[Rfam]
RNA: Small Cajal body specific RNA 23
Organism: Phyllostomus discolor
RNA sequence: AGGCUCCCGAGGUCCGGUCCUGGCCACGUGGCCCCGACCCGCCCUCCUCGAGCAACAGAAACUGGACUGGAUUGGGGGUGCCCUGUCUCAGUGGACACGGGACACCACGGUUUCCGGUGCUACA
Dot-bracket structure: ..((((....(((..((((....((....))....)))).)))......))))..........(.(((((.(((..((((.(((((((....))))..))).)))).)))...))))).)....